[Rfam]
Notes
Rfam assigns this 46-nucleotide RNA sequence from Branchiostoma belcheri to the family "Histone 3' UTR stem-loop". For this family Rfam cites "Molecular mechanisms for the regulation of histone mRNA stem-loop-binding protein by phosphorylation" (Zhang et al., Proc Natl Acad Sci U S A, 2014). The mRNAs of metazoan histone genes lack a poly-A tail. 3' end processing occurs at a site between a highly conserved stem-loop (modelled by this family) and a purine rich region around 20 nts downstream (the histone downstream element, or HDE). The stem-loop is bound by a 31 kDa stem-loop binding protein (SLBP - also termed the histone hairpin binding protein, or HBP). Together with U7 snRNA binding of the HDE, SLBP binding nucleate s the formation of the processing complex. The histone 3' UTR stem-loop is also involved in nucleocytoplasmic transport of the mRNA, and in stability regulation and translation efficiency in the cytoplasm. Pairs were carried over by alignment from the consensus structure, which is taken from published work.
RNA sequence: CCACCGGCCCUUUUCAGGGCCACCCAAAUAUUCAAAAAGAGCUUAU
Numbered sequence: 001c002c003a004c005c006g007g008c009c010c011u012u013u014u015c016a017g018g019g020c021c022a023c024c025c026a027a028a029u030a031u032u033c034a035a036a037a038a039g040a041g042c043u044u045a046u
Base pairs, nucleotide, nucleotide: 006021007020008019009018010017011016